[Rfam]
RNA: radC RNA
RNA sequence: CAUCGAAGGAAAUGCCAGCCGACUCUGUCGGCGACAUGCCCAGGUAGCCAUCGAUCUUCAAGGCUACGGUGCGGCUCGACCGCACUGAUCGAACCCGUUCGCUUCGCAUCCUCGCCUGCGAACAGCCGCCGCGUUUGUGGCGGUGGAUGC
Numbered sequence: 001c002a003u004c005g006a007a008g009g010a011a012a013u014g015c016c017a018g019c020c021g022a023c024u025c026u027g028u029c030g031g032c033g034a035c036a037u038g039c040c041c042a043g044g045u046a047g048c049c050a051u052c053g054a055u056c057u058u059c060a061a062g063g064c065u066a067c068g069g070u071g072c073g074g075c076u077c078g079a080c081c082g083c084a085c086u087g088a089u090c091g092a093a094c095c096c097g098u099u100c101g102c103u104u105c106g107c108a109u110c111c112u113c114g115c116c117u118g119c120g121a122a123c124a125g126c127c128g129c130c131g132c133g134u135u136u137g138u139g140g141c142g143g144u145g146g147a148u149g150c
Stems, first nucleotide, its partner, number of pairs: 012037003015033001018032006044067006053090004068086007118150003125144008